RNA: Small nucleolar RNA SNORD11B
RNA sequence: UGGUGGCGAUGAUGAUUUAUCUUAACUCAUCUGAAAUACAAGCAUGAGGAUGUACAGUCACUACCUCAUCUGAUGCCACUC
Numbered sequence: 001u002g003g004u005g006g007c008g009a010u011g012a013u014g015a016u017u018u019a020u021c022u023u024a025a026c027u028c029a030u031c032u033g034a035a036a037u038a039c040a041a042g043c044a045u046g047a048g049g050a051u052g053u054a055c056a057g058u059c060a061c062u063a064c065c066u067c068a069u070c071u072g073a074u075g076c077c078a079c080u081c
Base pairs, nucleotide, nucleotide: 002080003079004078005077006076007075